[Rfam]
RNA sequence: AGAAAAUGGACUCUGUACAAUCCAUUCCGAUGAAACAUUGUGCAGAGU
Dot-bracket structure: ..........(((((.(((...................))).))))).
Numbered sequence: 001a002g003a004a005a006a007u008g009g010a011c012u013c014u015g016u017a018c019a020a021u022c023c024a025u026u027c028c029g030a031u032g033a034a035a036c037a038u039u040g041u042g043c044a045g046a047g048u
Stems, first nucleotide, its partner, number of pairs: 011047005017041003